[Rfam]
Description:
Shown here is a 142-nucleotide RNA sequence from Ceyx cyanopectus, a member of the family "Small nucleolar RNA SNORA12". A search with the family's covariance model found it, with a score of 70 bits. The family has 23 seed sequences and 571 matches in Rfam 15.1. By type it is an H/ACA-box small nucleolar RNA. From the family's description: U108 belongs to the H/ACA family of snoRNAs. Taxonomically the source falls in Ceyx (Eukaryota, Chordata, Vertebrata, Neognathae).
RNA sequence: UAUUGUGGUAGUUUUUGUAUUUGGCAGCUCUGUAACUGUAUCAGAGUGGCCUUAAGCUACCACAGAGAUCAGGAAGGAGAAGGCUGUGCUGGGAACUUUUUGAAGCUUUUAGUUACCAGCCUCUUGUUAAUCUCCUACAGAA
Numbered sequence: 001u002a003u004u005g006u007g008g009u010a011g012u013u014u015u016u017g018u019a020u021u022u023g024g025c026a027g028c029u030c031u032g033u034a035a036c037u038g039u040a041u042c043a044g045a046g047u048g049g050c051c052u053u054a055a056g057c058u059a060c061c062a063c064a065g066a067g068a069u070c071a072g073g074a075a076g077g078a079g080a081a082g083g084c085u086g087u088g089c090u091g092g093g094a095a096c097u098u099u100u101u102g103a104a105g106c107u108u109u110u111a112g113u114u115a116c117c118a119g120c121c122u123c124u125u126g127u128u129a130a131u132c133u134c135c136u137a138c139a140g141a142a
Base pairs, nucleotide, nucleotide: 005063006062007061008060009059010058011057023051024050025049027047028046029045030044031043032042076135077134078133079132080131103125104124105123